[Rfam]
Nucleotides: 206
Stems, first nucleotide, its partner, number of pairs: 005201005011195016032174004045153003049149004055143003059139010072126006
Number, partner (000 for none) and nucleotide at each position: 001000u002000a003000g004000g005201u006200u007199u008198g009197u010000c011195u012194u013193a014192a015191g016190u017189c018188a019187g020186a021185u022184u023183u024182g025181u026180u027000c028000a029000a030000c031000u032174u033173u034172g035171a036000c037000c038000a039000a040000g041000u042000u043000u044000a045153u046152a047151g048000a049149a050148a051147a052146a053000u054000a055143u056142a057141a058000c059139a060138a061137c062136a063135u064134u065133u066132a067131u068130a069000c070000u071000a072126c073125c074124a075123g076122a077121u078000a079000u080000a081000u082000a083000c084000a085000u086000u087000a088000u089000c090000a091000a092000u093000a094000u095000a096000u097000a098000u099000c100000a101000u102000a103000a104000u105000g106000g107000a108000u109000u110000c111000a112000a113000u114000g115000a116000a117000a118000c119000a120000a121077a122076u123075u124074u125073g126072g127000u128000a129000u130068u131067g132066u133065a134064a135063a136062u137061g138060u139059u140000a141057u142056u143055g144000u145000a146052u147051u148050u149049u150000c151047c152046u153045a154000u155000a156000a157000a158000u159000u160000u161000c162000a163000a164000a165000u166000u167000u168000u169000a170000a171035u172034c173033a174032a175000a176000g177000u178000u179000g180026g181025a182024u183023a184022a185021a186020u187019u188018u189017g190016a191015c192014u193013u194012a195011g196000g197009a198008c199007a200006a201005a202000g203000c204000u205000a206000a
MIR1435 microRNA precursor family: a 206-nucleotide RNA from Panicum virgatum. The organism belongs to Panicum sect. Hiantes, within Eukaryota. Gene Ontology terms of the family: miRNA-mediated post-transcriptional gene silencing and RISC complex.